Background:
The record is a 110-nucleotide sequence from Diploscapter pachys, which matches "SL2 RNA" in Rfam. The family's RNA type in Rfam is non-coding RNA gene. This family represents SL2 RNA. SL2 RNA is involved in trans splicing in lower eukaryotes. Trans-splicing is a form of RNA processing.
[Rfam]
RNA sequence: GGUUAUUACCCAGUUACUCAAGGUUAGCUUGAGAAUCCGACCGAGUUUCGACUCGCGUCGAUCAGCUACUUUUUGGAAACUACCUUUCUGGGGACAUCCGGAGAGGAAAA
Numbered sequence: 001g002g003u004u005a006u007u008a009c010c011c012a013g014u015u016a017c018u019c020a021a022g023g024u025u026a027g028c029u030u031g032a033g034a035a036u037c038c039g040a041c042c043g044a045g046u047u048u049c050g051a052c053u054c055g056c057g058u059c060g061a062u063c064a065g066c067u068a069c070u071u072u073u074u075g076g077a078a079a080c081u082a083c084c085u086u087u088c089u090g091g092g093g094a095c096a097u098c099c100g101g102a103g104a105g106g107a108a109a110a
Stems, first nucleotide, its partner, number of pairs: 010031001013028002016025001018023001038060004042055005085106005091099002
Its Rfam clan is "SL clan". Its family is annotated with mRNA trans splicing, via spliceosome in the Gene Ontology.